[Rfam]
RNA sequence: CACAGAGGGUCGAAGGCUAGAAGCGCCACAUCGUGUGGCAACACAGUCGUGACCAACAUCCUGUAGG
Numbered sequence: 001c002a003c004a005g006a007g008g009g010u011c012g013a014a015g016g017c018u019a020g021a022a023g024c025g026c027c028a029c030a031u032c033g034u035g036u037g038g039c040a041a042c043a044c045a046g047u048c049g050u051g052a053c054c055a056a057c058a059u060c061c062u063g064u065a066g067g
Stems, first nucleotide, its partner, number of pairs: 011049003016044001025039005053067002056064002